Rfam assigns this 121-nucleotide sequence from Rosa chinensis to the family "U5 spliceosomal RNA". A reference for the family is Thomas et al. (1990), "The spliceosomal snRNAs of Caenorhabditis elegans", Nucleic Acids Res. Taxonomically the source falls in Rosa (Eukaryota, Magnoliopsida, Gunneridae, Pentapetalae). U5 RNA is a component of both types of known spliceosome. The precise function of this molecule is unknown, though it is known that the 5' loop is required for splice site selection and p220 binding, and that both the 3' stem-loop and the Sm site are important for Sm protein binding and cap methylation.
RNA sequence: AGCCAUGCGUUGAGCACAGAGCGAACUAUUAAUUAUUUCGCCUUUUACUAAAGAAUACUGUGUGCACAGCGUUUUAAGUGGCUUAUGUUUAUUUUUGGAAGGGUGUACCUUUAUGAGUCCC
Numbered sequence: 001a002g003c004c005a006u007g008c009g010u011u012g013a014g015c016a017c018a019g020a021g022c023g024a025a026c027u028a029u030u031a032a033u034u035a036u037u038u039c040g041c042c043u044u045u046u047a048c049u050a051a052a053g054a055a056u057a058c059u060g061u062g063u064g065c066a067c068a069g070c071g072u073u074u075u076a077a078g079u080g081g082c083u084u085a086u087g088u089u090u091a092u093u094u095u096u097g098g099a100a101g102g103g104u105g106u107a108c109c110u111u112u113a114u115g116a117g118u119c120c121c
Base pairs, nucleotide, nucleotide: 003081004080005079006078008071009070010069011068012067014065015064016063017062018061032056033055034054036052037051038050101121102120103119106116